Rfam assigns this 72-nucleotide RNA sequence from Bifidobacterium gallicum to the family "RAGATH-18 RNA". The family's RNA type in Rfam is small RNA. Actinobacteria, Firmicutes, Fusobacteria, Thermotogae (1 example). Taxonomically the source falls in Bifidobacterium gallicum (Bacteria, Bacillati, Actinomycetes, Bifidobacteriaceae).
RNA sequence: CCUGUGGACUGUCGCAUCCACUCCGGUACGCACCGCGCGAGCGGGCGGAAAGAGGACAGGUAGAAGCAGGAA
Numbered sequence: 001c002c003u004g005u006g007g008a009c010u011g012u013c014g015c016a017u018c019c020a021c022u023c024c025g026g027u028a029c030g031c032a033c034c035g036c037g038c039g040a041g042c043g044g045g046c047g048g049a050a051a052g053a054g055g056a057c058a059g060g061u062a063g064a065a066g067c068a069g070g071a072a
Stems, first nucleotide, its partner, number of pairs: 001070005009059005021054003029047003033044004